[Rfam]
Rfam assigns this 73-nucleotide sequence from Smithornis capensis to the family "mir-551 microRNA precursor family". Rfam links the family to the GO terms RISC complex and miRNA-mediated post-transcriptional gene silencing. It scores 66 bits against the family's covariance model. On this family, see Murchison et al., Genome Res 2008: "Conservation of small RNA pathways in platypus".

RNA sequence: UGACCUUGGAAAUCAAGUGUUGGUGGAGCCUGAGGGAUGGUUUGAGGCGACCCAUGCUUGGUUUCAAGGGUCU
Numbered sequence: 001u002g003a004c005c006u007u008g009g010a011a012a013u014c015a016a017g018u019g020u021u022g023g024u025g026g027a028g029c030c031u032g033a034g035g036g037a038u039g040g041u042u043u044g045a046g047g048c049g050a051c052c053c054a055u056g057c058u059u060g061g062u063u064u065c066a067a068g069g070g071u072c073u
Stems, first nucleotide, its partner, number of pairs: 002072006009065006016058002022052003028048004